[Rfam]
About this RNA:
A member of the RNA family "PhotoRC-II RNA", 95 nucleotides long. It is annotated as a cis-regulatory element. Rfam's curators put it in the seed alignment.
Nucleotides: 095
Stems, first nucleotide, its partner, number of pairs: 012038005023054005060082007
Number, partner (000 for none) and nucleotide at each position: 001000u002000a003000a004000c005000a006000g007000u008000u009000g010000a011000a012038c013037a014036c015035g016034c017000c018000u019000c020000a021000c022000c023054g024053a025052g026051a027050c028000u029000a030000a031000a032000c033000a034016g035015c036014g037013u038012g039000u040000c041000u042000a043000a044000a045000a046000a047000a048000c049000a050027g051026u052025c053024u054023c055000u056000c057000a058000u059000a060082c061081c062080a063079a064078c065077u066076c067000u068000g069000g070000a071000g072000g073000g074000u075000a076066g077065a078064g079063u080062u081061g082060g083000a084000a085000u086000a087000u088000u089000u090000u091000a092000c093000c094000u095000a